A member of the RNA family "S10-Clostridia ribosomal protein leader" from Alkalicoccobacillus porphyridii, 101 nucleotides long. The match comes from Rfam's covariance-model search (37 bits). Taxonomically the source falls in Alkalicoccobacillus (Bacteria, Bacillota, Bacilli, Caryophanales).
Nucleotides: 101
Base pairs, nucleotide, nucleotide: 014072015071016070018069019068020067021066025061026060027059081101082100085098086097087096088095
Number, partner (000 for none) and nucleotide at each position: 001000u002000g003000a004000c005000a006000u007000c008000g009000a010000u011000g012000a013000u014072g015071c016070g017000g018069a019068a020067g021066g022000u023000u024000g025061c026060u027059g028000a029000u030000a031000c032000a033000c034000c035000c036000g037000g038000c039000c040000c041000c042000u043000u044000u045000g046000c047000c048000a049000u050000g051000g052000c053000a054000g055000g056000g057000u058000g059027u060026a061025g062000g063000a064000a065000a066021u067020u068019u069018u070016c071015g072014c073000g074000g075000a076000g077000u078000a079000u080000g081101u082100c083000u084000g085098u086097u087096u088095a089000u090000c091000a092000a093000a094000a095088u096087g097086g098085a099000c100082g101081a